[Rfam]
RNA sequence: CAUCGCUUCAGGGCGGGGCGCAACUCCCCACCGGCGGUAAGCUCACUCUCGAGCAAGCCCGCGAGCCAAUGACUGGUGUCAUUUGCAGAUUUGGUGCAAAUCCAAAGCCGACGGUAUAGUCCGGAUGAAAGAAGUCGACG
Numbered sequence: 001c002a003u004c005g006c007u008u009c010a011g012g013g014c015g016g017g018g019c020g021c022a023a024c025u026c027c028c029c030a031c032c033g034g035c036g037g038u039a040a041g042c043u044c045a046c047u048c049u050c051g052a053g054c055a056a057g058c059c060c061g062c063g064a065g066c067c068a069a070u071g072a073c074u075g076g077u078g079u080c081a082u083u084u085g086c087a088g089a090u091u092u093g094g095u096g097c098a099a100a101u102c103c104a105a106a107g108c109c110g111a112c113g114g115u116a117u118a119g120u121c122c123g124g125a126u127g128a129a130a131g132a133a134g135u136c137g138a139c140g
Base pairs, nucleotide, nucleotide: 003138004137005136006134007133008132009131016028017027018026030120031119032110033109034062035061036060037059057108058107065086066085090106091105092104093103094102112123113122114121
Source information
Rfam assigns this 140-nucleotide sequence from Acinetobacter brisouii to the family "FMN riboswitch aptamer (RFN element)". Pairs were carried over by alignment from the consensus structure, which is taken from published work. It scores 112 bits against the family's covariance model.